Rfam assigns this 441-nucleotide sequence from Photorhabdus laumondii to the family "cspA thermoregulator".
By type it is an RNA thermoregulator.

[Rfam]
RNA sequence: GACCUAUUUAUGAAAAGUAUUAAUGAAAAGUAUUAAAAUUAAAGCAGUUCACCAUUUAGCGUUAUCCCUGAUACCACUUCAUUGCGAAUUCCUUCUAAUUAGUACCCAUAAGUAAAACUGAAAAACAGACCUCAUAACGCCUUAUGGCAACUUAAUAAAUUUAAAGGAAAAUUCUAUGUCUAGUUCAAUGACUGGUUCAGUAAAAUGGUUUAACAACGAUAAAGGUUUUGGCUUUAUUUCCCCAAAAGAUGGUAGCAAAGAUGUUUUCGUUCAUUAUUCUGCAAUUCAGAGUAAUAAUUUCAAAACAUUGGAAGAAGGUCAGGAAGUCUCAUUCUCUAUUGAGAAUGGCGCUAAAGGCCCAUCUGCGGUAAAUGUUAUCGUAUUAUCUUAAUUUAACUGAUUAAGUCUAUUAGCAACUUUACGAUAGCGAUGAAGGUAAUA
Dot-bracket structure: .....((((.....)))).....((....(.(..........((..(.((.((.(.....(((.....(((.(((....(((.(......((((.(((...((.....................))............(((....)))............)))))))......).))).(((((......)))))...........)))))).....))).).))....)).)))..).)..))...(((((.......((.....))....(((..(((((..(((((.....(........)...))))).....).)))).)))........))))).....(((.(((...))))))..(((((((.....)))))))....((.((((.....)))).)).....((.(..(.((.(....).)).)..).))...
Numbered sequence: 001g002a003c004c005u006a007u008u009u010a011u012g013a014a015a016a017g018u019a020u021u022a023a024u025g026a027a028a029a030g031u032a033u034u035a036a037a038a039u040u041a042a043a044g045c046a047g048u049u050c051a052c053c054a055u056u057u058a059g060c061g062u063u064a065u066c067c068c069u070g071a072u073a074c075c076a077c078u079u080c081a082u083u084g085c086g087a088a089u090u091c092c093u094u095c096u097a098a099u100u101a102g103u104a105c106c107c108a109u110a111a112g113u114a115a116a117a118c119u120g121a122a123a124a125a126c127a128g129a130c131c132u133c134a135u136a137a138c139g140c141c142u143u144a145u146g147g148c149a150a151c152u153u154a155a156u157a158a159a160u161u162u163a164a165a166g167g168a169a170a171a172u173u174c175u176a177u178g179u180c181u182a183g184u185u186c187a188a189u190g191a192c193u194g195g196u197u198c199a200g201u202a203a204a205a206u207g208g209u210u211u212a213a214c215a216a217c218g219a220u221a222a223a224g225g226u227u228u229u230g231g232c233u234u235u236a237u238u239u240c241c242c243c244a245a246a247a248g249a250u251g252g253u254a255g256c257a258a259a260g261a262u263g264u265u266u267u268c269g270u271u272c273a274u275u276a277u278u279c280u281g282c283a284a285u286u287c288a289g290a291g292u293a294a295u296a297a298u299u300u301c302a303a304a305a306c307a308u309u310g311g312a313a314g315a316a317g318g319u320c321a322g323g324a325a326g327u328c329u330c331a332u333u334c335u336c337u338a339u340u341g342a343g344a345a346u347g348g349c350g351c352u353a354a355a356g357g358c359c360c361a362u363c364u365g366c367g368g369u370a371a372a373u374g375u376u377a378u379c380g381u382a383u384u385a386u387c388u389u390a391a392u393u394u395a396a397c398u399g400a401u402u403a404a405g406u407c408u409a410u411u412a413g414c415a416a417c418u419u420u421a422c423g424a425u426a427g428c429g430a431u432g433a434a435g436g437u438a439a440u441a
Stems, first nucleotide, its partner, number of pairs: 006018004024244002030240001032238001043235002047233001049231002052225002055222001061220003069212003073209003080178003084174001091167004096163003102126002139148003180195005248340005260268002273327003278323004282318001285312005295304001346361003350358003364382007387405002390402004411438002414435001417432001419430002422427001
A search with the family's covariance model found it, with a score of 177 bits.